A member of the RNA family "S4-Flavobacteria ribosomal protein leader", 32 nucleotides long. Rfam's curators put it in the seed alignment. The family's RNA type in Rfam is cis-regulatory leader.
RNA sequence: GUUUGACGAAGGAUAGACCUUAAUUCUCAUUC
Numbered sequence: 001g002u003u004u005g006a007c008g009a010a011g012g013a014u015a016g017a018c019c020u021u022a023a024u025u026c027u028c029a030u031u032c
Stems, first nucleotide, its partner, number of pairs: 001032001004029003008026001009021004